Description:
Rfam assigns this 70-nucleotide sequence from Microcebus murinus to the family "Small nucleolar RNA SNORD82". Rfam 15.1 lists 649 matches to the family in 590 species. Rfam's curators put it in the seed alignment. Its family is annotated with nucleolus and RNA processing in the Gene Ontology. The organism belongs to Microcebus, within Eukaryota. By type it is a C/D-box small nucleolar RNA.

[Rfam]
RNA sequence: AGCACAGCUGAUGAAUGACAAAGGGACUUAAUACUGAAACCUGAUGUUACACUAUAACGUGCUGAUGUGC
Numbered sequence: 001a002g003c004a005c006a007g008c009u010g011a012u013g014a015a016u017g018a019c020a021a022a023g024g025g026a027c028u029u030a031a032u033a034c035u036g037a038a039a040c041c042u043g044a045u046g047u048u049a050c051a052c053u054a055u056a057a058c059g060u061g062c063u064g065a066u067g068u069g070c
Base pairs, nucleotide, nucleotide: 002070003069004068005067006066